Description:
This 162-nucleotide sequence from Paenibacillus rigui belongs to the Rfam family "FMN riboswitch aptamer (RFN element)". The base pairs follow the family's consensus structure, which is taken from published work. It scores 114 bits against the family's covariance model. The RFN element is a highly conserved domain that is found frequently in the 5'-untranslated regions of prokaryotic mRNAs that encode for flavin mononucleotide (FMN) biosynthesis and transport proteins. This element is a metabolite-dependent riboswitch that directly binds FMN in the absence of proteins. In Bacillus subtilis, the riboswitch most likely controls gene expression by causing premature transcription termination within the 5' untranslated region of the ribDEAHT operon and precluding access to the ribosome-binding site of ypaA mRNA.The FMN riboswitch structure, reported in present an FMN-bound six-stem junction, adopts a butterfly-like scaffold, stapled together by opposingly directed but nearly identically folded peripheral domains.

[Rfam]
RNA sequence: AGUUUCCUUCGGGGCAGGGUGAAAUUCCCUACCGGCGGUGAUACGUCAAUGCGAGCUCUCGCAUUGAUGUUCAGUCCGUGACCCGUCCGCAGCUUUGCCGCGGCCGGCUGACUCGGUGAAAUUCCGAGACCGACAGUAUAGUCUGGAUGGGAGAAGGAAAAC
Numbered sequence: 001a002g003u004u005u006c007c008u009u010c011g012g013g014g015c016a017g018g019g020u021g022a023a024a025u026u027c028c029c030u031a032c033c034g035g036c037g038g039u040g041a042u043a044c045g046u047c048a049a050u051g052c053g054a055g056c057u058c059u060c061g062c063a064u065u066g067a068u069g070u071u072c073a074g075u076c077c078g079u080g081a082c083c084c085g086u087c088c089g090c091a092g093c094u095u096u097g098c099c100g101c102g103g104c105c106g107g108c109u110g111a112c113u114c115g116g117u118g119a120a121a122u123u124c125c126g127a128g129a130c131c132g133a134c135a136g137u138a139u140a141g142u143c144u145g146g147a148u149g150g151g152a153g154a155a156g157g158a159a160a161a162c
Stems, first nucleotide, its partner, number of pairs: 003160008017029003031142002033132002035079004083107002112128005134145003